[Rfam]
RNA: FMN riboswitch aptamer (RFN element)
Organism: Paenibacillus durus
Nucleotides: 155
Stems, first nucleotide, its partner, number of pairs: 004152007017029003031135002033125002035068004063123002072100006105121005127138003
Number, partner (000 for none) and nucleotide at each position: 001000c002000a003000a004152g005151a006150u007149u008148c009147u010146c011000g012000g013000g014000g015000u016000a017029a018028g019027g020000u021000g022000a023000a024000a025000u026000u027019c028018c029017u030000g031135a032134c033125c034124g035068g036067c037066g038065g039000u040000g041000a042000g043000g044000u045000u046000c047000g048000c049000g050000a051000g052000g053000g054000c055000g056000g057000a058000c059000c060000g061000c062000a063123g064122c065038c066037c067036g068035c069000g070000a071000c072100u073099c074098c075097u076096u077095u078000u079000u080000u081000u082000c083000u084000u085000a086000g087000c088000u089000g090000g091000a092000a093000a094000g095077a096076a097075g098074g099073g100072a101000c102000u103000g104000a105121u106120c107119u108118g109117g110000u111000g112000g113000a114000a115000a116000u117109c118108c119107a120106g121105a122064g123063c124034c125033g126000a127138c128137g129136g130000u131000a132000a133000a134032g135031u136129c137128c138127g139000g140000a141000g142000g143000a144000g145000a146010g147009a148008g149007g150006a151005u152004c153000a154000a155000a